Overview: The record is a 131-nucleotide RNA from Myotis myotis, which matches "Small nucleolar RNA SNORA8" in Rfam. A search with the family's covariance model found it, with a score of 112 bits. It is annotated as an H/ACA-box small nucleolar RNA. Gene Ontology terms of the family: RNA processing and nucleolus. The family's consensus secondary structure was predicted with RNAfold. About the family: ACA8 is a member of the H/ACA class of snoRNA that guide the sites of modification of uridines to pseudouridines.
[Rfam]
Nucleotides: 131
Stems, first nucleotide, its partner, number of pairs: 002060003006056002015053003018046001020044009063120002066117004070112004080099002
Number, partner (000 for none) and nucleotide at each position: 001000u002060g003059c004058a005000c006056u007055g008000u009000g010000u011000g012000g013000u014000a015053u016052c017051u018046g019000g020044a021043u022042u023041c024040a025039g026038c027037a028036g029000u030000u031000u032000a033000u034000u035000c036028c037027u038026g039025c040024u041023g042022g043021g044020u045000g046018u047000u048000c049000a050000a051017a052016g053015g054000a055007c056006a057000u058004u059003g060002c061000a062000a063120u064119a065000u066117g067116a068115a069114u070112u071111c072110a073109g074000c075000a076000c077000c078000u079000g080099g081098c082000a083000u084000c085000a086000u087000u088000g089000g090000u091000u092000u093000u094000c095000u096000u097000g098081g099080c100000a101000u102000g103000u104000u105000a106000a107000a108000c109073c110072u111071g112070g113000u114069a115068u116067u117066u118000u119064u120063a121000u122000u123000g124000a125000u126000a127000c128000a129000a130000u131000a